[Rfam]
RNA sequence: UCGGAUUGCUUUGCUCGGGCGUUUCCUCCCUAGACUUGGGCCGCUUGUCACAAACAAGCGGCUCUUCUUUUUUGUGC
Dot-bracket structure: .......((((.....))))...................(((((((((.....)))))))))...............
The record is a 77-nucleotide sequence from Bradyrhizobium diazoefficiens, which matches "Makes More Granules Regulator RNA (mmgR)" in Rfam. Its Rfam clan is "suhB sRNA clan". The organism belongs to Bradyrhizobium diazoefficiens, within Bacteria. The base pairs follow the family's consensus structure.